[Rfam]
RNA sequence: GAAGACCCUGUUGAGCUUGACUCUAGUUUGACUUUGUGAAGAGACAUGAGAGGUGUAGCAUAGGUGGGAGCCGUCAAAAAGCGACCUUGAAAUACCACUACUUUUAUCGUUUCUUUACUUAUUCAGUCGAGCGGAGAGCGGGGCGCAAGCCCCUCGCUUCUGGAAUUAAGCUCGCGCCGGCACCUCGCCGGUGUCGCGCGGGCGAUCCGCUCUGAAGACCGUGUCAGGCGGGGAGUUUGACUGGGGCGGUACAUCUGUCAAAAGGUAACGCAGGUGUCCUAAGGCGAGCUCAGCGAGGACGGAAACCUCGCGUAGAGCAAAAGGGCAAAAGCUCGCUUGAUUUUGAUUUUCAGUACGAAUACAGACCGUGAAAGCGUGGCCUAUCGAUCCUUUUGAAUUUCGGAGUGUGAAUCAAGAGGUGUCAGAAAAGUUACCACAGGGAUAACUGGCUUGUGGCAGCCAAGCGUUCAUAGCGACGUUGCUUUUGAUCCUUCGAUGUCGGCUCUUCCUAUCAUUGCGAAGCAGAAUUCGCCAAGCGUUGGAUUGUUCACCCACUAAUAGGGAACGUGAGCUGGGUUUAGACCGUCGUGAGACAGGUUA
Numbered sequence: 001g002a003a004g005a006c007c008c009u010g011u012u013g014a015g016c017u018u019g020a021c022u023c024u025a026g027u028u029u030g031a032c033u034u035u036g037u038g039a040a041g042a043g044a045c046a047u048g049a050g051a052g053g054u055g056u057a058g059c060a061u062a063g064g065u066g067g068g069a070g071c072c073g074u075c076a077a078a079a080a081g082c083g084a085c086c087u088u089g090a091a092a093u094a095c096c097a098c099u100a101c102u103u104u105u106a107u108c109g110u111u112u113c114u115u116u117a118c119u120u121a122u123u124c125a126g127u128c129g130a131g132c133g134g135a136g137a138g139c140g141g142g143g144c145g146c147a148a149g150c151c152c153c154u155c156g157c158u159u160c161u162g163g164a165a166u167u168a169a170g171c172u173c174g175c176g177c178c179g180g181c182a183c184c185u186c187g188c189c190g191g192u193g194u195c196g197c198g199c200g201g202g203c204g205a206u207c208c209g210c211u212c213u214g215a216a217g218a219c220c221g222u223g224u225c226a227g228g229c230g231g232g233g234a235g236u237u238u239g240a241c242u243g244g245g246g247c248g249g250u251a252c253a254u255c256u257g258u259c260a261a262a263a264g265g266u267a268a269c270g271c272a273g274g275u276g277u278c279c280u281a282a283g284g285c286g287a288g289c290u291c292a293g294c295g296a297g298g299a300c301g302g303a304a305a306c307c308u309c310g311c312g313u314a315g316a317g318c319a320a321a322a323g324g325g326c327a328a329a330a331g332c333u334c335g336c337u338u339g340a341u342u343u344u345g346a347u348u349u350u351c352a353g354u355a356c357g358a359a360u361a362c363a364g365a366c367c368g369u370g371a372a373a374g375c376g377u378g379g380c381c382u383a384u385c386g387a388u389c390c391u392u393u394u395g396a397a398u399u400u401c402g403g404a405g406u407g408u409g410a411a412u413c414a415a416g417a418g419g420u421g422u423c424a425g426a427a428a429a430g431u432u433a434c435c436a437c438a439g440g441g442a443u444a445a446c447u448g449g450c451u452u453g454u455g456g457c458a459g460c461c462a463a464g465c466g467u468u469c470a471u472a473g474c475g476a477c478g479u480u481g482c483u484u485u486u487g488a489u490c491c492u493u494c495g496a497u498g499u500c501g502g503c504u505c506u507u508c509c510u511a512u513c514a515u516u517g518c519g520a521a522g523c524a525g526a527a528u529u530c531g532c533c534a535a536g537c538g539u540u541g542g543a544u545u546g547u548u549c550a551c552c553c554a555c556u557a558a559u560a561g562g563g564a565a566c567g568u569g570a571g572c573u574g575g576g577u578u579u580a581g582a583c584c585g586u587c588g589u590g591a592g593a594c595a596g597g598u599u600a
Stems, first nucleotide, its partner, number of pairs: 007440004012436002014432005020236004027228006036118010046107007063099005070082002122216005132209004140153005170203008239252001240250003253275006278379002284336006290316002293311006317326002341365003346360004367376003390418006399411003449489001451487001453486001455483006464474002500575001501573004505567001506564005513538001517532005540554003544550001581599004585594003